[Rfam]
RNA sequence: UUUUGUAAUGUCUGUGGUUGAAAGUUCAAGCCAGACGCAGGCGAAGGAAUCCACGUAAGCUAAUAUAAAAAUUUAUUAGUGAGCAUAGUGCGUUUUAGAUGUAAGACCUACCGUAAAGCGAGAGAAUCAUUAGUGAGGCGAACCCGAGCAAAAGUUCCAGUAGGCGAGUGUGGGGGAAAAGACCAGUGUCAGAUUACAAAA
Number, nucleotide and partner (000 for none) at each position: 001u201002u200003u199004u198005g197006u196007a195008a194009u193010g000011u000012c192013u191014g190015u185016g184017g183018u182019u181020g000021a000022a000023a000024g000025u000026u000027c000028a171029a000030g169031c041032c000033a095034g094035a093036c092037g091038c090039a089040g000041g031042c000043g000044a000045a000046g000047g000048a000049a000050u088051c000052c000053a000054c000055g000056u000057a000058a080059g000060c000061u000062a076063a000064u000065a000066u000067a000068a000069a000070a000071a000072u000073u000074u000075a000076u062077u000078a000079g000080u058081g000082a000083g000084c000085a000086u178087a000088g050089u039090g038091c037092g036093u035094u034095u033096u000097a000098g000099a000100u000101g000102u000103a000104a000105g000106a000107c164108c163109u162110a161111c160112c120113g119114u118115a000116a000117a000118g114119c113120g112121a000122g000123a000124g157125a156126a155127u154128c000129a000130u000131u000132a000133g149134u148135g000136a000137g000138g000139c146140g145141a000142a000143c000144c000145c140146g139147a000148g134149c133150a000151a000152a000153a000154g127155u126156u125157c124158c000159a000160g111161u110162a109163g108164g107165c000166g000167a000168g000169u030170g000171u028172g000173g000174g000175g000176g000177a000178a086179a000180a000181g019182a018183c017184c016185a015186g000187u000188g000189u000190c014191a013192g012193a009194u008195u007196a006197c005198a004199a003200a002201a001
The record is a 201-nucleotide RNA sequence, which matches "raiA RNA" in Rfam. The family's consensus secondary structure is taken from published work. It is annotated as a riboswitch. Rfam's curators put it in the seed alignment.